Background: This 107-nucleotide sequence from Triticum aestivum belongs to the Rfam family "Small nucleolar RNA Z118/Z121/Z120". Rfam 15.1 lists 435 matches to the family in 31 species. It scores 82 bits against the family's covariance model.
[Rfam]
RNA sequence: UGUUUGCUGUGAAGAAUAACAAGGACGGUAUCUGAGUAAGCUGGCUCUUGAAAAAGGCCUCCUUCCUUGAUAUUCACCCUAAACUGAUCAUAUAAUCUGAGCAAACA
Numbered sequence: 001u002g003u004u005u006g007c008u009g010u011g012a013a014g015a016a017u018a019a020c021a022a023g024g025a026c027g028g029u030a031u032c033u034g035a036g037u038a039a040g041c042u043g044g045c046u047c048u049u050g051a052a053a054a055a056g057g058c059c060u061c062c063u064u065c066c067u068u069g070a071u072a073u074u075c076a077c078c079c080u081a082a083a084c085u086g087a088u089c090a091u092a093u094a095a096u097c098u099g100a101g102c103a104a105a106c107a
Base pairs, nucleotide, nucleotide: 001107002106003105004104005103006102007101036066038064039063040062
A reference for the family is Chen et al. (2003), "The high diversity of snoRNAs in plants: identification and comparative study of 120 snoRNA genes from Oryza sativa", Nucleic Acids Res.
Lineage of the source: Eukaryota > Embryophyta > Spermatophyta > Triticodae > Triticum.